A member of the RNA family "Histone 3' UTR stem-loop" from Coptotermes formosanus, 47 nucleotides long. The source organism's lineage runs through Eukaryota, Opisthokonta, Bilateria, Rhinotermitidae and Coptotermes.
[Rfam]
RNA sequence: AAAAUGGUCCUUUUAAGGACCACAACAUAUAGUCCUGGGAGAGAUAU
Numbered sequence: 001a002a003a004a005u006g007g008u009c010c011u012u013u014u015a016a017g018g019a020c021c022a023c024a025a026c027a028u029a030u031a032g033u034c035c036u037g038g039g040a041g042a043g044a045u046a047u
Base pairs, nucleotide, nucleotide: 006021007020008019009018010017011016